[Rfam]
The record is a 57-nucleotide RNA from Faecalibacterium prausnitzii, which matches "RAGATH-5 RNA" in Rfam. The source organism's lineage runs through Bacteria, Bacillati, Eubacteriales, Oscillospiraceae and Faecalibacterium prausnitzii. Rfam's curators put it in the seed alignment. The literature on the family includes a 2015 paper in Nat Chem Biol by Weinberg et al., "New classes of self-cleaving ribozymes revealed by comparative genomics analysis". The family's consensus secondary structure is taken from published work.
RNA sequence: GCGGACACUUUCAAGGGCUGCACCGCUGCCGCAAAAGCAACCCUAUGCCACCGCCCC
Numbered sequence: 001g002c003g004g005a006c007a008c009u010u011u012c013a014a015g016g017g018c019u020g021c022a023c024c025g026c027u028g029c030c031g032c033a034a035a036a037g038c039a040a041c042c043c044u045a046u047g048c049c050a051c052c053g054c055c056c057c
Stems, first nucleotide, its partner, number of pairs: 001026004013046001014044004019039003